This 102-nucleotide RNA sequence from Legionella sp. km772 belongs to the Rfam family "traJ-II RNA". It scores 57 bits against the family's covariance model.

RNA sequence: GGGCAAGAUAGGUGAAGUUAGCUAACCAGCAAGCUGGCUACCAAUCAUCACAAGUCUUAUUCGCACCUUCGGUGCUCAACGAAAACCCUAUGUUUUAAGGUC
Numbered sequence: 001g002g003g004c005a006a007g008a009u010a011g012g013u014g015a016a017g018u019u020a021g022c023u024a025a026c027c028a029g030c031a032a033g034c035u036g037g038c039u040a041c042c043a044a045u046c047a048u049c050a051c052a053a054g055u056c057u058u059a060u061u062c063g064c065a066c067c068u069u070c071g072g073u074g075c076u077c078a079a080c081g082a083a084a085a086c087c088c089u090a091u092g093u094u095u096u097a098a099g100g101u102c
Stems, first nucleotide, its partner, number of pairs: 001093001003091001005089001007087001009085001012051004017046001019044001021042001024039001026037004055082002063075005

Rfam classes the family as a cis-regulatory element.